[Rfam]
RNA: U12 minor spliceosomal RNA
RNA sequence: UUGCCUUAAACUAAUGAGUAAGGAAAAUAACAGAUCCUGGUGACGCGGGAUCUCACGACUUCCGUUCGUGACGCAAUUUUUGGAGGGGCAAAGGCCACCGCUGGGCGUCCAGCCUACUUUCGCUGUGACGCCCUUCUGUUUGUGGUCUCCAAAUCUACCCC
Numbered sequence: 001u002u003g004c005c006u007u008a009a010a011c012u013a014a015u016g017a018g019u020a021a022g023g024a025a026a027a028u029a030a031c032a033g034a035u036c037c038u039g040g041u042g043a044c045g046c047g048g049g050a051u052c053u054c055a056c057g058a059c060u061u062c063c064g065u066u067c068g069u070g071a072c073g074c075a076a077u078u079u080u081u082g083g084a085g086g087g088g089c090a091a092a093g094g095c096c097a098c099c100g101c102u103g104g105g106c107g108u109c110c111a112g113c114c115u116a117c118u119u120u121c122g123c124u125g126u127g128a129c130g131c132c133c134u135u136c137u138g139u140u141u142g143u144g145g146u147c148u149c150c151a152a153a154u155c156u157a158c159c160c161c
Stems, first nucleotide, its partner, number of pairs: 004023005032053008054070005085161004092148007100136001103133005110125004